[Rfam]
RNA sequence: GCAGGGGAAGCCGAAAACCUGAUUGAGAGUAGGCA
Numbered sequence: 001g002c003a004g005g006g007g008a009a010g011c012c013g014a015a016a017a018c019c020u021g022a023u024u025g026a027g028a029g030u031a032g033g034c035a
Base pairs, nucleotide, nucleotide: 002021003020004019005018010034011033012032
The family of this 35-nucleotide RNA from Salinimicrobium catena is "DUF805b RNA". The organism belongs to Salinimicrobium, within Bacteria. The family's RNA type in Rfam is cis-regulatory element.